[Rfam]
RNA sequence: AUGCAGGGACGGCCUUGCAAACCUAUCUUCAGCACCAGGACGACCUGG
Numbered sequence: 001a002u003g004c005a006g007g008g009a010c011g012g013c014c015u016u017g018c019a020a021a022c023c024u025a026u027c028u029u030c031a032g033c034a035c036c037a038g039g040a041c042g043a044c045c046u047g048g
Stems, first nucleotide, its partner, number of pairs: 002019007035048005
Rfam assigns this 48-nucleotide RNA from Roseinatronobacter bogoriensis to the family "Guanidine-II riboswitch aptamer (mini-ykkC)". Rfam describes the family as follows. Simpler in structure and has fewer highly conserved nucleotide positions than the ykkC-yxkD leader. Despite this each of its two stem-loop structures directly bind free guanidine. Therefore, mini-ykkC RNA motif represents a distinct class of guanidine-sensing RNAs. Its crystal structure was also determined.